[Rfam]
RNA sequence: CCUGAACGCACACUGCUCAGGUCGGGAUGUGAUCCUCUCGAGGAUUGAACCAGGAA
Numbered sequence: 001c002c003u004g005a006a007c008g009c010a011c012a013c014u015g016c017u018c019a020g021g022u023c024g025g026g027a028u029g030u031g032a033u034c035c036u037c038u039c040g041a042g043g044a045u046u047g048a049a050c051c052a053g054g055a056a
Stems, first nucleotide, its partner, number of pairs: 001021005024051002031046005
This 56-nucleotide RNA belongs to the Rfam family "eL15-Euryarchaeota ribosomal protein leader". By type it is a cis-regulatory leader. It is one of the family's seed sequences.